[Rfam]
RNA sequence: GCCCACCUUGGCCUCCCAAAGUGCUGGGAUUCUUACAUUGACUGCAUAGAAAGAGGAGAGAACAUAACCUACCUACCUCAUACAUACUUCAGCCCAGGUCCUGUGCCUGAUCUGUAAUGUGAAUGAAGAGACAUGG
Numbered sequence: 001g002c003c004c005a006c007c008u009u010g011g012c013c014u015c016c017c018a019a020a021g022u023g024c025u026g027g028g029a030u031u032c033u034u035a036c037a038u039u040g041a042c043u044g045c046a047u048a049g050a051a052a053g054a055g056g057a058g059a060g061a062a063c064a065u066a067a068c069c070u071a072c073c074u075a076c077c078u079c080a081u082a083c084a085u086a087c088u089u090c091a092g093c094c095c096a097g098g099u100c101c102u103g104u105g106c107c108u109g110a111u112c113u114g115u116a117a118u119g120u121g122a123a124u125g126a127a128g129a130g131a132c133a134u135g136g
Stems, first nucleotide, its partner, number of pairs: 002060001004058001006056003020043002026038001028036001030035001076128001078126004090114003095109005
RNA: Small nucleolar RNA SNORA51
Organism: Pongo abelii